Background: The record is a 103-nucleotide RNA from Antrihabitans cavernicola, which matches "mraW RNA" in Rfam. By type it is a cis-regulatory element.
[Rfam]
RNA sequence: UCAGGCGAGUGCCGCGAGGCCUCUGCCCGACGGGACCCUGACGCUCUUCCCCAGCGCCAGGUUCCCCGAUCGGACAGGGACCCCGCGGCAUUCGCACCCACCG
Numbered sequence: 001u002c003a004g005g006c007g008a009g010u011g012c013c014g015c016g017a018g019g020c021c022u023c024u025g026c027c028c029g030a031c032g033g034g035a036c037c038c039u040g041a042c043g044c045u046c047u048u049c050c051c052c053a054g055c056g057c058c059a060g061g062u063u064c065c066c067c068g069a070u071c072g073g074a075c076a077g078g079g080a081c082c083c084c085g086c087g088g089c090a091u092u093c094g095c096a097c098c099c100a101c102c103g
Base pairs, nucleotide, nucleotide: 010090011089012088013087014086015085016084018082019081021079022078023077024076025075027073028072029071030070031068032066033065034064035063037061038060039059040058042056043055044054